[Rfam]
RNA sequence: AUUCCCGUCGUCGGCGCCCCGUUGGGCGGCGUAGCGGCAGCCCUUGCACAUGGUGUGAGGGCAAUCGAAGACGGGAUUAAUUAUGCAACAGGGAAUCUUCCUGGUUGCUCCUU
Dot-bracket structure: (((((.(((..(.(((((((....)).))))).)(((..((((((((((...))))))))))..)))..)))))))).......(((((.(((......))).))))).....
RNA: J750 non-coding RNA (containing SLSL761 and SL783)